[Rfam]
RNA sequence: GCAAACAAAGUUUUGCUUCGCAGGAGAGAUAGCGCCAUCACUUGUUCUUAGAGUUUUAGCUGAUGGUGACGGUAUCUCUCCUACGCAGCAAUCCUUAUAUAUGC
Numbered sequence: 001g002c003a004a005a006c007a008a009a010g011u012u013u014u015g016c017u018u019c020g021c022a023g024g025a026g027a028g029a030u031a032g033c034g035c036c037a038u039c040a041c042u043u044g045u046u047c048u049u050a051g052a053g054u055u056u057u058a059g060c061u062g063a064u065g066g067u068g069a070c071g072g073u074a075u076c077u078c079u080c081c082u083a084c085g086c087a088g089c090a091a092u093c094c095u096u097a098u099a100u101a102u103g104c
Base pairs, nucleotide, nucleotide: 001104002103003102005100007098008096009095010094013091014090015089016088017087019085020084022082023081024080025079026078027077028076029075030074031073033071034070036068037067038066039065040064041062044054045053046052047051
This 104-nucleotide RNA from Arabis nemorensis belongs to the Rfam family "MIR391 microRNA precursor family". Lineage of the source: Eukaryota > Viridiplantae > Streptophyta > malvids > Arabis. The match comes from Rfam's covariance-model search (98 bits). Its family is annotated with RISC complex and miRNA-mediated post-transcriptional gene silencing in the Gene Ontology.